[Rfam]
RNA sequence: AAGUGGGGUAGAGGUGCAAGGCGAAUGAGUAUACUUAAAGAGCUAGUGGAUAGCGAUGACUUAAGUAAAAAGGUCAACUUGCCGAAGCAUAUAAAUGUACCACCAUUUAUAAAGCUGGGUCGUUAUUGAAUAAAUAACGGACUGUCACUGAUUUUGAUCAGUGGAGAACUAUUCUUUUU
Numbered sequence: 001a002a003g004u005g006g007g008g009u010a011g012a013g014g015u016g017c018a019a020g021g022c023g024a025a026u027g028a029g030u031a032u033a034c035u036u037a038a039a040g041a042g043c044u045a046g047u048g049g050a051u052a053g054c055g056a057u058g059a060c061u062u063a064a065g066u067a068a069a070a071a072g073g074u075c076a077a078c079u080u081g082c083c084g085a086a087g088c089a090u091a092u093a094a095a096u097g098u099a100c101c102a103c104c105a106u107u108u109a110u111a112a113a114g115c116u117g118g119g120u121c122g123u124u125a126u127u128g129a130a131u132a133a134a135u136a137a138c139g140g141a142c143u144g145u146c147a148c149u150g151a152u153u154u155u156g157a158u159c160a161g162u163g164g165a166g167a168a169c170u171a172u173u174c175u176u177u178u179u
Stems, first nucleotide, its partner, number of pairs: 006174006016082005023075002032067007086116003090111008117143002120140008145164007